A member of the RNA family "t44 RNA" from Nitrosococcus halophilus, 90 nucleotides long. The base pairs follow the family's consensus structure, which was predicted with LocARNA. The family's RNA type in Rfam is small RNA. A reference for the family is Tjaden et al. (2002), "Transcriptome analysis of Escherichia coli using high-density oligonucleotide probe arrays", Nucleic Acids Res.
RNA sequence: UUUUAAAGCAAAUGAAAUCACACGCAUAUCGGCACAUGUAUCGGGGUGCCUCGGGUUUAGGUCGAUAUAUGGGAUAUGCGGAGGAAUAAC
Dot-bracket structure: ......................((((((((....(((((((((....((((.......))))))))))))).))))))))..........